[Rfam]
RNA sequence: UUGUUUCUAUGAUGAGGCAAAGGAAUGUUGCACCUUUUAGUGGUGCCUGAUAAUGCAUGAGGAAAUAUUCCAUGCUGCCUUCCUUCUGAGAAACAG
Numbered sequence: 001u002u003g004u005u006u007c008u009a010u011g012a013u014g015a016g017g018c019a020a021a022g023g024a025a026u027g028u029u030g031c032a033c034c035u036u037u038u039a040g041u042g043g044u045g046c047c048u049g050a051u052a053a054u055g056c057a058u059g060a061g062g063a064a065a066u067a068u069u070c071c072a073u074g075c076u077g078c079c080u081u082c083c084u085u086c087u088g089a090g091a092a093a094c095a096g
Stems, first nucleotide, its partner, number of pairs: 001096005
Dot-bracket structure: (((((......................................................................................)))))
Overview:
The record is a 96-nucleotide RNA from Polypterus senegalus, which matches "Small nucleolar RNA U83B" in Rfam. A search with the family's covariance model found it, with a score of 65 bits. U83B belongs to the C/D family of snoRNAs. U83B like U83A has no documented RNA target and they share the same host gene with the C/D box snoRNA U43 (RPL3). N.B. U83A/B/C have no sequence similarity with the U83 snoRNA that was cloned by Jady and Kiss (2000). The family has 21 seed sequences and 966 matches in Rfam 15.1. For this family Rfam cites "Characterisation of the U83 and U84 small nucleolar RNAs: two novel 2'-O-ribose methylation guide RNAs that lack complementarities to ribosomal RNAs" (Jady and Kiss, Nucleic Acids Res, 2000). The organism belongs to Polypterus, within Eukaryota. It is annotated as a C/D-box small nucleolar RNA. Gene Ontology terms of the family: nucleolus and RNA processing.